[Rfam]
The family of this 69-nucleotide RNA sequence from Piaya cayana is "Small nucleolar RNA SNORD58". Clan: SNORD58 clan.

RNA sequence: CUGCGGGGAUGACUUUCUUAGGACACCUUUGGAUUUGAUCGUGAAAAGAAAGCGUUGUGUCUGAGCAGC
Numbered sequence: 001c002u003g004c005g006g007g008g009a010u011g012a013c014u015u016u017c018u019u020a021g022g023a024c025a026c027c028u029u030u031g032g033a034u035u036u037g038a039u040c041g042u043g044a045a046a047a048g049a050a051a052g053c054g055u056u057g058u059g060u061c062u063g064a065g066c067a068g069c
Base pairs, nucleotide, nucleotide: 001068002067003066004065
A reference for the family is Kiss-Laszlo et al. (1996), "Site-specific ribose methylation of preribosomal RNA: a novel function for small nucleolar RNAs", Cell. The organism belongs to Piaya, within Eukaryota. Its family is annotated with nucleolus and RNA processing in the Gene Ontology. snoRNA U58 is found in introns 1, 3 and 6 of the ribosomal protein RPL17 gene in humans.